[Rfam]
RNA: SAH (S-adenosyl-L-homocysteine) riboswitch aptamer
RNA sequence: CGGGCCGAGGGGCGCUGCGACGGACGAUGUCCGCCACGCUCGGCUCGCGUUUGGUCGUAAGGGCGCCUCCCACCG
Numbered sequence: 001c002g003g004g005c006c007g008a009g010g011g012g013c014g015c016u017g018c019g020a021c022g023g024a025c026g027a028u029g030u031c032c033g034c035c036a037c038g039c040u041c042g043g044c045u046c047g048c049g050u051u052u053g054g055u056c057g058u059a060a061g062g063g064c065g066c067c068u069c070c071c072a073c074c075g
Stems, first nucleotide, its partner, number of pairs: 002046007021033005